The family of this 80-nucleotide RNA from Orycteropus afer is "mir-542 microRNA precursor family".
It scores 105 bits against the family's covariance model.
The family's consensus secondary structure was predicted with RNAalifold.
RNA sequence: CCCUAGACAUUUCGGGGAUCAUCAUGUCACGAGAUACCACUGUGCGCUUGUGACAGAUUGAUAACUGAAAGGUCUGGGAG
Numbered sequence: 001c002c003c004u005a006g007a008c009a010u011u012u013c014g015g016g017g018a019u020c021a022u023c024a025u026g027u028c029a030c031g032a033g034a035u036a037c038c039a040c041u042g043u044g045c046g047c048u049u050g051u052g053a054c055a056g057a058u059u060g061a062u063a064a065c066u067g068a069a070a071g072g073u074c075u076g077g078g079a080g
Base pairs, nucleotide, nucleotide: 002078003077004076005075006074007073008072012068013067014066015065018062019061020060021059025055026054027053028052029051030050031049032048033047